Overview: This 131-nucleotide RNA sequence from Mesocricetus auratus belongs to the Rfam family "Small nucleolar RNA SNORA46". ACA46 is a member of the H/ACA class of snoRNA that guide the sites of modification of uridines to pseudouridines. It scores 87 bits against the family's covariance model. The source organism's lineage runs through Eukaryota, Mammalia, Theria, Eutheria and Mesocricetus. The base pairs follow the family's consensus structure, which was predicted with RNAfold.
RNA sequence: AGCACCAUAUUGAAAUAUAGGGAAGGGAAUGCCCCCAUUCUAGGCUACACUGUAGCGCAAGAAUUCUGGCUCCUUGCUGCACAGCUGACUUGUGCCAUUUUGCUGUUGCUUUGUGGAGUUAAGGAGCACGU
Numbered sequence: 001a002g003c004a005c006c007a008u009a010u011u012g013a014a015a016u017a018u019a020g021g022g023a024a025g026g027g028a029a030u031g032c033c034c035c036c037a038u039u040c041u042a043g044g045c046u047a048c049a050c051u052g053u054a055g056c057g058c059a060a061g062a063a064u065u066c067u068g069g070c071u072c073c074u075u076g077c078u079g080c081a082c083a084g085c086u087g088a089c090u091u092g093u094g095c096c097a098u099u100u101u102g103c104u105g106u107u108g109c110u111u112u113g114u115g116g117a118g119u120u121a122a123g124g125a126g127c128a129c130g131u
Base pairs, nucleotide, nucleotide: 002058003057005055007053008052009051014046016044021040022039023038025036026035027034064125065124066123067122068120069119070118071117072116073115075113076112079109080108081107082105083104084103085102087100088099